[Rfam]
RNA: Small nucleolar RNA Z107/R87
RNA sequence: GAUCACGAUGAUGACUCCAUAAAAUUCAAGCUCAACAGACCGUAGGUCAGGGCUUUCUCUUUCGAGAUUGCUUUGCGUGUCGAUUAACCCGCUGAACUGAGUGAUC
Numbered sequence: 001g002a003u004c005a006c007g008a009u010g011a012u013g014a015c016u017c018c019a020u021a022a023a024a025u026u027c028a029a030g031c032u033c034a035a036c037a038g039a040c041c042g043u044a045g046g047u048c049a050g051g052g053c054u055u056u057c058u059c060u061u062u063c064g065a066g067a068u069u070g071c072u073u074u075g076c077g078u079g080u081c082g083a084u085u086a087a088c089c090c091g092c093u094g095a096a097c098u099g100a101g102u103g104a105u106c
Base pairs, nucleotide, nucleotide: 001106002105003104004103005102006101